[Rfam]
mir-133 microRNA precursor family: a 77-nucleotide RNA sequence from Mizuhopecten yessoensis. The family's consensus secondary structure was predicted with PFOLD. Rfam links the family to the GO terms RISC complex and miRNA-mediated post-transcriptional gene silencing. NCBI's taxonomy places the organism under Eukaryota, Protostomia, Lophotrochozoa, Bivalvia, Mizuhopecten.
RNA sequence: AUUUUGUAGUUGGUUGAAACCGGGCCAAAUAAGUACAGAAACACAAGCAUUUGGUCCCCUUCAACCAGCUGUGAGUG
Numbered sequence: 001a002u003u004u005u006g007u008a009g010u011u012g013g014u015u016g017a018a019a020c021c022g023g024g025c026c027a028a029a030u031a032a033g034u035a036c037a038g039a040a041a042c043a044c045a046a047g048c049a050u051u052u053g054g055u056c057c058c059c060u061u062c063a064a065c066c067a068g069c070u071g072u073g074a075g076u077g
Stems, first nucleotide, its partner, number of pairs: 003075004008070011022056002025054006